[Rfam]
Rfam assigns this 46-nucleotide RNA sequence from Burmannia coelestis to the family "Plastid-ycf3 group II-D1 intron". The base pairs follow the family's consensus structure, which was predicted with LocARNA. Gene Ontology term of the family: Group II intron splicing. It is one of the family's seed sequences. Plastid rpl16 is a non-coding RNA (ncRNA) recognised in plastids.
RNA sequence: AUUCCUUCUAUCGUGUAUCCUCGAUUAAUGUAUCCUGAGAUACUUU
Numbered sequence: 001a002u003u004c005c006u007u008c009u010a011u012c013g014u015g016u017a018u019c020c021u022c023g024a025u026u027a028a029u030g031u032a033u034c035c036u037g038a039g040a041u042a043c044u045u046u
Base pairs, nucleotide, nucleotide: 010025011024012023013022032044